[Rfam]
RNA sequence: CGGCACGGAGGAUAGGGUAAGUCGCCGCGAGGCGACUGGCCGAGAAAUUCCGC
Numbered sequence: 001c002g003g004c005a006c007g008g009a010g011g012a013u014a015g016g017g018u019a020a021g022u023c024g025c026c027g028c029g030a031g032g033c034g035a036c037u038g039g040c041c042g043a044g045a046a047a048u049u050c051c052g053c
Base pairs, nucleotide, nucleotide: 020037021036022035023034024033025032026031
The record is a 53-nucleotide RNA sequence from Haloprofundus sp. MHR1, which matches "leuA-Halobacteria RNA" in Rfam. The match comes from Rfam's covariance-model search (64 bits). The family's consensus secondary structure is taken from published work. Taxonomically the source falls in Haloprofundus (Archaea, Methanobacteriati, Halobacteriales, Haloferacaceae). Rfam classes the family as a cis-regulatory element.